[Rfam]
RNA sequence: UUUUCCUUUAAUUUAGUCCUGUGAGGCUAACAAGGUGAACGAUAUAUAAUGCAGUACUUCUCUGCGUUCGGAAUUUGUAUGGAUAAAACACCUUGGUAAAAGGUGUUUUUUUAU
Numbered sequence: 001u002u003u004u005c006c007u008u009u010a011a012u013u014u015a016g017u018c019c020u021g022u023g024a025g026g027c028u029a030a031c032a033a034g035g036u037g038a039a040c041g042a043u044a045u046a047u048a049a050u051g052c053a054g055u056a057c058u059u060c061u062c063u064g065c066g067u068u069c070g071g072a073a074u075u076u077g078u079a080u081g082g083a084u085a086a087a088a089c090a091c092c093u094u095g096g097u098a099a100a101a102g103g104u105g106u107u108u109u110u111u112u113a114u
Stems, first nucleotide, its partner, number of pairs: 003037001005035004013030006041075003045071001048068007085109010

Background:
Rfam assigns this 114-nucleotide RNA from Pseudogracilibacillus auburnensis to the family "PyrR binding site". A reference for the family is Bonner et al. (2001), "Molecular recognition of pyr mRNA by the Bacillus subtilis attenuation regulatory protein PyrR", Nucleic Acids Res. The family's consensus secondary structure is taken from published work. Taxonomically the source falls in Pseudogracilibacillus (Bacteria, Bacillati, Bacillota, Caryophanales).